[Rfam]
RNA sequence: CAAAUUCUUCGUUAGGUGAGGCUUCUACACAGACACAGGCCGCUGCCCGGAAAGGUCGAGAGACGCUAACGGGUUAACAGGUAUUACCGGAUUAAGGUUUUACUUAACGUGGCUGGGAACAAUCUCUAGCUGUGUACGUGCUAAAACUCAGACGAGUGGGGAAAGGC
Numbered sequence: 001c002a003a004a005u006u007c008u009u010c011g012u013u014a015g016g017u018g019a020g021g022c023u024u025c026u027a028c029a030c031a032g033a034c035a036c037a038g039g040c041c042g043c044u045g046c047c048c049g050g051a052a053a054g055g056u057c058g059a060g061a062g063a064c065g066c067u068a069a070c071g072g073g074u075u076a077a078c079a080g081g082u083a084u085u086a087c088c089g090g091a092u093u094a095a096g097g098u099u100u101u102a103c104u105u106a107a108c109g110u111g112g113c114u115g116g117g118a119a120c121a122a123u124c125u126c127u128a129g130c131u132g133u134g135u136a137c138g139u140g141c142u143a144a145a146a147c148u149c150a151g152a153c154g155a156g157u158g159g160g161g162a163a164a165g166g167c
Stems, first nucleotide, its partner, number of pairs: 005163006011153002013095001015148003020142003025138001026136007039113005045074005055064003080104004086098003115125003
RNA: M-box riboswitch aptamer (ykoK leader)